A member of the RNA family "Proteobacterial sRNA psRNA2" from Chromobacterium sp. C-61, 215 nucleotides long. The family has 7 seed sequences and 122 matches in Rfam 15.1. The pairing is the family consensus, mapped onto this sequence. By type it is a small RNA.

[Rfam]
RNA sequence: GGGUUACUCCUGCUCUUUCACGCUGUCUUGAUGAAGAUUCGCACCUCUAUCAAAACGGGUAACCCCGCCUCUCUGCAAGGCCUGACUGUCAGAUCAAAUCGGAACUUCUACACUUCAGAACUCGGCACUUUACCUUCCAAUAGGAGCCACUCCAUGCUUUUUCCAACAUUCAAAUCUUGCGUUUGUUGCUACGCUCAUCGCAACGAUAACCGCCU
Number, nucleotide and partner (000 for none) at each position: 001g065002g064003g063004u062005u061006a060007c059008u000009c058010c057011u000012g000013c000014u000015c022016u000017u000018u000019c000020a000021c000022g015023c000024u000025g056026u055027c000028u053029u052030g051031a050032u049033g048034a000035a046036g045037a000038u000039u000040c000041g000042c000043a000044c000045c036046u035047c000048u033049a032050u031051c030052a029053a028054a000055a026056c025057g010058g009059g007060u006061a005062a004063c003064c002065c001066c000067g213068c212069c000070u000071c000072u000073c000074u000075g157076c000077a000078a000079g152080g151081c000082c000083u149084g148085a000086c000087u000088g105089u104090c102091a000092g100093a099094u098095c000096a000097a000098a094099u093100c092101g000102g090103a000104a089105c088106u000107u145108c144109u143110a000111c000112a141113c000114u000115u000116c000117a000118g000119a000120a000121c000122u000123c000124g000125g000126c000127a000128c000129u000130u000131u000132a000133c000134c000135u000136u000137c000138c000139a000140a000141u112142a000143g109144g108145a107146g000147c000148c084149a083150c000151u080152c079153c000154a000155u000156g000157c075158u000159u000160u000161u000162u000163c000164c000165a000166a000167c000168a000169u000170u000171c000172a000173a000174a000175u000176c000177u000178u000179g000180c000181g207182u206183u205184u000185g204186u203187u202188g201189c200190u000191a198192c000193g000194c000195u000196c000197a000198u191199c000200g189201c188202a187203a186204c185205g183206a182207u181208a000209a000210c000211c000212g068213c067214c000215u000